[Rfam]
RNase MRP: a 273-nucleotide RNA.

RNA sequence: GGCAUUCUGAAGACCUGAAGUCUAGGCAACGUACGGGAGACGUAGUUCUUCAAUCACAUGACGCCUAGGGGAAAGUCCCCGGAUCUCGGGUAGAAAGUGCCGUGCGCUACUAUGGCGUGCAAUAAUCCCGCCCUGCUGUCCAUAUCAACCCGCCAAGAAGCUCCCAGAGCCGAGCGGCUUGGAUUAGGGCGGGAUCUCUCAUCAGUCACCAUAGUAACUCAGGUAGCGCGGCAACGUCCACGCUAACUAAACGGGGCUCAUUCUCAGAAUGCU
Numbered sequence: 001g002g003c004a005u006u007c008u009g010a011a012g013a014c015c016u017g018a019a020g021u022c023u024a025g026g027c028a029a030c031g032u033a034c035g036g037g038a039g040a041c042g043u044a045g046u047u048c049u050u051c052a053a054u055c056a057c058a059u060g061a062c063g064c065c066u067a068g069g070g071g072a073a074a075g076u077c078c079c080c081g082g083a084u085c086u087c088g089g090g091u092a093g094a095a096a097g098u099g100c101c102g103u104g105c106g107c108u109a110c111u112a113u114g115g116c117g118u119g120c121a122a123u124a125a126u127c128c129c130g131c132c133c134u135g136c137u138g139u140c141c142a143u144a145u146c147a148a149c150c151c152g153c154c155a156a157g158a159a160g161c162u163c164c165c166a167g168a169g170c171c172g173a174g175c176g177g178c179u180u181g182g183a184u185u186a187g188g189g190c191g192g193g194a195u196c197u198c199u200c201a202u203c204a205g206u207c208a209c210c211a212u213a214g215u216a217a218c219u220c221a222g223g224u225a226g227c228g229c230g231g232c233a234a235c236g237u238c239c240a241c242g243c244u245a246a247c248u249a250a251a252c253g254g255g256g257c258u259c260a261u262u263c264u265c266a267g268a269a270u271g272c273u
Stems, first nucleotide, its partner, number of pairs: 001273010013224006021069007036051005074258002077256004089101004102120006122195002129191006138184004150177004160170004226243003230239002
Rfam's curators put it in the seed alignment. Rfam's curators write: RNase MRP is an enzymatically active ribonucleoprotein with two distinct roles in eukaryotes. The family's consensus secondary structure is taken from published work.